[Rfam]
RNA: Small nucleolar RNA SNORD93
Organism: Ochotona princeps
Nucleotides: 074
Stems, first nucleotide, its partner, number of pairs: 002073004
Number, partner (000 for none) and nucleotide at each position: 001000u002073g003072g004071c005070c006000a007000a008000g009000g010000a011000u012000g013000a014000g015000a016000a017000c018000c019000c020000u021000u022000u023000g024000c025000u026000g027000a028000u029000u030000c031000a032000g033000u034000u035000u036000g037000c038000u039000c040000c041000u042000g043000c044000g045000c046000u047000g048000a049000u050000g051000g052000g053000u054000u055000a056000a057000a058000g059000g060000a061000u062000u063000u064000a065000c066000c067000u068000g069000a070005g071004g072003c073002c074000a